[Rfam]
RNA sequence: GGGCGCGUGCACGGGAGCCCCGCACGGGGCUGAGAGGGCGCAGGGCGCCGACCGUCGAACCUGAUCUGGGUCAUGCCAGCGAAGGGAGCAGCAGAUGAGUGCGU
Numbered sequence: 001g002g003g004c005g006c007g008u009g010c011a012c013g014g015g016a017g018c019c020c021c022g023c024a025c026g027g028g029g030c031u032g033a034g035a036g037g038g039c040g041c042a043g044g045g046c047g048c049c050g051a052c053c054g055u056c057g058a059a060c061c062u063g064a065u066c067u068g069g070g071u072c073a074u075g076c077c078a079g080c081g082a083a084g085g086g087a088g089c090a091g092c093a094g095a096u097g098a099g100u101g102c103g104u
Stems, first nucleotide, its partner, number of pairs: 008090003011055004017030005037049005060085003066079004
Dot-bracket structure: .......(((((((..(((((....)))))......(((((...)))))..))))....(((...((((......))))...)))..)))..............

Shown here is a 104-nucleotide sequence from Promicromonospora citrea, a member of the family "TPP riboswitch aptamer (THI element)". A search with the family's covariance model found it, with a score of 63 bits. The family's consensus secondary structure is taken from published work. NCBI's taxonomy places the organism under Bacteria, Actinomycetota, Actinomycetes, Micrococcales, Promicromonospora.